A member of the RNA family "Small nucleolar RNA SNORD86" from Chrysochloris asiatica, 80 nucleotides long. Lineage of the source: Eukaryota > Vertebrata > Dipnotetrapodomorpha > Amniota > Chrysochloris. The family's RNA type in Rfam is C/D-box small nucleolar RNA.
[Rfam]
RNA sequence: UCUAUUAAAGAUUCAUGGUUCCUGACCUAUCACAGGCCUCUGCUAUGGGGGUGAUGGCCAGCCCUGGUGUCUGAGUGAGU
Numbered sequence: 001u002c003u004a005u006u007a008a009a010g011a012u013u014c015a016u017g018g019u020u021c022c023u024g025a026c027c028u029a030u031c032a033c034a035g036g037c038c039u040c041u042g043c044u045a046u047g048g049g050g051g052u053g054a055u056g057g058c059c060a061g062c063c064c065u066g067g068u069g070u071c072u073g074a075g076u077g078a079g080u
Stems, first nucleotide, its partner, number of pairs: 002079002006075001010071003013067003017063004021057002023054001025052004033047002035044003